[Rfam]
RNA: UnaL2 LINE 3' element
RNA sequence: GAUUCCUCUAACUGUAAGUCGCUCUGGAUAAGAGCGUCUGCUAAAUGACUUAAA
Numbered sequence: 001g002a003u004u005c006c007u008c009u010a011a012c013u014g015u016a017a018g019u020c021g022c023u024c025u026g027g028a029u030a031a032g033a034g035c036g037u038c039u040g041c042u043a044a045a046u047g048a049c050u051u052a053a054a
Stems, first nucleotide, its partner, number of pairs: 013043001014041003020036006